[Rfam]
The record is an 86-nucleotide sequence from Gilsonvirus comrade, which matches "Selenocysteine transfer RNA" in Rfam. NCBI's taxonomy places the organism under Viruses, Heunggongvirae, Uroviricota, Loccivirinae, Gilsonvirus comrade.
RNA sequence: GGAAGGUCAAUCCGAUUGGCGACGGAACUUGUCUUGAAAACAAGCGAGGUGUGAAAGCCCUUAGGAGUUCGACUCUCCUACCUUCC
Numbered sequence: 001g002g003a004a005g006g007u008c009a010a011u012c013c014g015a016u017u018g019g020c021g022a023c024g025g026a027a028c029u030u031g032u033c034u035u036g037a038a039a040a041c042a043a044g045c046g047a048g049g050u051g052u053g054a055a056a057g058c059c060c061u062u063a064g065g066a067g068u069u070c071g072a073c074u075c076u077c078c079u080a081c082c083u084u085c086c
Stems, first nucleotide, its partner, number of pairs: 001086007011026004016021001028044005047062003051058001064078004